RNA: Molybdenum/Tungsten riboswitch aptamer (Moco RNA motif)
Organism: Tepidibacillus decaturensis
RNA sequence: AUAUAGUAACUUCUUCGAGCAUAUUAGCCUAAGGUUAAUCUAUGGCUGGUACGCCUGAGCAGUUAGCUCACAGGGUAUAUCUGGAAACGGAUAUGCCUUCCGUUAUGAAAAGAAGGGGGGAUUUUUAUAGA
Number, nucleotide and partner (000 for none) at each position: 001a000002u000003a125004u000005a000006g122007u000008a000009a000010c000011u117012u116013c115014u114015u113016c112017g000018a000019g054020c053021a000022u051023a050024u049025u048026a047027g046028c045029c044030u000031a000032a000033g041034g040035u000036u000037a000038a000039u000040c034041u033042a000043u000044g029045g028046c027047u026048g025049g024050u023051a022052c000053g020054c019055c000056u070057g069058a068059g067060c066061a000062g000063u000064u000065a000066g060067c059068u058069c057070a056071c000072a000073g098074g097075g096076u095077a094078u093079a092080u091081c090082u089083g088084g000085a000086a000087a000088c083089g082090g081091a080092u079093a078094u077095g076096c075097c074098u073099u108100c107101c000102g000103u000104u000105a000106u000107g100108a099109a000110a000111a000112g016113a015114a014115g013116g012117g011118g000119g000120g000121a000122u006123u000124u000125u003126u000127a000128u000129a000130g000131a000